[Rfam]
RNA sequence: GUGCUUCAGUGAUUUACAGUUCCCACAAAUUAAUAUCCAUCCUUUUCACUUUGUCAGCUCUGUCCUCCAUGGCUUGCUGAUCAUUGUUGGAUGGUAUAUCU
Numbered sequence: 001g002u003g004c005u006u007c008a009g010u011g012a013u014u015u016a017c018a019g020u021u022c023c024c025a026c027a028a029a030u031u032a033a034u035a036u037c038c039a040u041c042c043u044u045u046u047c048a049c050u051u052u053g054u055c056a057g058c059u060c061u062g063u064c065c066u067c068c069a070u071g072g073c074u075u076g077c078u079g080a081u082c083a084u085u086g087u088u089g090g091a092u093g094g095u096a097u098a099u100c101u
Base pairs, nucleotide, nucleotide: 037094038093039092040091041090053081054080055079056078057077058076
Small nucleolar RNA snoR99: a 101-nucleotide RNA from Cucurbita maxima.
The family has 9 seed sequences and 733 matches in Rfam 15.1.
The family's consensus secondary structure was predicted with WAR.
By type it is an H/ACA-box small nucleolar RNA.
For this family Rfam cites "Experimental RNomics: identification of 140 candidates for small non-messenger RNAs in the plant Arabidopsis thaliana" (Marker et al., Curr Biol, 2002).